[Rfam]
RNA: Streptomyces RNA 3202
RNA sequence: CCACGUCCCGCCGCAAUCCCCCCCCCCGGCGCCGGGACGUUCCCCGAGCCGGGCUUCGGCGCCCACCCCCCCCGGGCGCCGGAGCCCGGCUCUUGC
Numbered sequence: 001c002c003a004c005g006u007c008c009c010g011c012c013g014c015a016a017u018c019c020c021c022c023c024c025c026c027c028g029g030c031g032c033c034g035g036g037a038c039g040u041u042c043c044c045c046g047a048g049c050c051g052g053g054c055u056u057c058g059g060c061g062c063c064c065a066c067c068c069c070c071c072c073c074g075g076g077c078g079c080c081g082g083a084g085c086c087c088g089g090c091u092c093u094u095g096c
Stems, first nucleotide, its partner, number of pairs: 005038006012031003046092010057081008